Rfam assigns this 96-nucleotide sequence from Methylobacterium durans to the family "Repression of heat shock gene expression (ROSE) element". Rfam classes the family as an RNA thermoregulator. About the family: This family represents a 5' UTR cis-regulatory element found in heat shock mRNAs and is known as the ROSE (repression of heat shock gene expression) element. The ROSE element is a negative regulator of heat shock gene expression. The secondary structure is thought to be regulated by temperature. This regulation blocks access to the ribosome binding site under normal conditions. The base pairs follow the family's consensus structure, which is taken from published work. For this family Rfam cites "A mRNA-based thermosensor controls expression of rhizobial heat shock genes" (Nocker et al., Nucleic Acids Res, 2001).
RNA sequence: UGCGAGGCCCUAAAGGCUCGCGGACAUGGGUGCCGGCUCUCGAUAUCCGGCCUCCCUCGUCAUCACGUUGCUCAAUGGAGAAUGUGGUCAUGAGGA
Numbered sequence: 001u002g003c004g005a006g007g008c009c010c011u012a013a014a015g016g017c018u019c020g021c022g023g024a025c026a027u028g029g030g031u032g033c034c035g036g037c038u039c040u041c042g043a044u045a046u047c048c049g050g051c052c053u054c055c056c057u058c059g060u061c062a063u064c065a066c067g068u069u070g071c072u073c074a075a076u077g078g079a080g081a082a083u084g085u086g087g088u089c090a091u092g093a094g095g096a
Base pairs, nucleotide, nucleotide: 001022002021003020004019005018006017008016009015028055029054030053032051033050034049035048036047056094057093058092059091060090063087064086065085066084067083068082069081071080072079073078